Source information:
The family of this 58-nucleotide RNA from filamentous cyanobacterium Phorm 6 is "Plastid-psbN 5UTR RNA". Taxonomically the source falls in Cyanobacteriota (Bacteria, Bacillati). Rfam describes the family as follows. Plastid psbN is a non-coding RNA (ncRNA) recognised in plastids. It scores 51 bits against the family's covariance model. The literature on the family includes a 2023 paper in Plant Commun by Richter et al., "Retrograde signaling in plants: A critical review focusing on the GUN pathway and beyond".
RNA sequence: CGCGCUCAUCAAUAGGGUGGUUCCCCAACCUGGGGCUACCUUGCCGUAUUCUGAGUUA
Dot-bracket structure: .............(((((((((((.......)))))))))))................